[Rfam]
terC RNA: a 63-nucleotide sequence from Sphingorhabdus profundilacus. Taxonomically the source falls in Sphingorhabdus (Bacteria, Pseudomonadota, Alphaproteobacteria, Sphingorhabdaceae). The match comes from Rfam's covariance-model search (48 bits).

RNA sequence: UAAGCGGACCGGGCCCCUCUGGCGCUCGCUUCUUUUUGAAGCAACGUGAUGUCGGCCGCAUCG
Numbered sequence: 001u002a003a004g005c006g007g008a009c010c011g012g013g014c015c016c017c018u019c020u021g022g023c024g025c026u027c028g029c030u031u032c033u034u035u036u037u038g039a040a041g042c043a044a045c046g047u048g049a050u051g052u053c054g055g056c057c058g059c060a061u062c063g
Base pairs, nucleotide, nucleotide: 006057007056009055010054011053012052022047023046024045026043028042029041030040031039032038